The record is a 106-nucleotide RNA sequence from Gammaproteobacteria bacterium MOLA455, which matches "t44 RNA" in Rfam. The base pairs follow the family's consensus structure, which was predicted with LocARNA. This family consists of a number of bacterial RNA genes of between 135 and 170 bases in length. The t44 gene has been identified in several species of enteric bacteria but homologs have also been identified in Pseudomonas and Coxiella species. The t44 gene is found between the map and rpsB genes in all species in the full alignment apart from Shigella flexneri. It scores 69 bits against the family's covariance model. On this family, see Tjaden et al., Nucleic Acids Res 2002: "Transcriptome analysis of Escherichia coli using high-density oligonucleotide probe arrays".
RNA sequence: AAACUUUUUUUUAAACGACACACACGUUCCGUCACAGUGAUCUGGGUGCCUAAAAGCGCAAUACUAGCUUGAAUGGUUGAUCUACUGGGGUACGUGGAGGCUUAAC
Dot-bracket structure: ......................(((((.((....((((((((.....(((........................))).))).))))).)).)))))..........